[Rfam]
RNA sequence: AGUGGGAGGGCUAUGCCGGACUUCGGUUCGGAAUGCCUGACCGCGUGCCUUUUGCAUAAUGA
Numbered sequence: 001a002g003u004g005g006g007a008g009g010g011c012u013a014u015g016c017c018g019g020a021c022u023u024c025g026g027u028u029c030g031g032a033a034u035g036c037c038u039g040a041c042c043g044c045g046u047g048c049c050u051u052u053u054g055c056a057u058a059a060u061g062a
Base pairs, nucleotide, nucleotide: 002044003043004042005041008038009037010036011035048061050059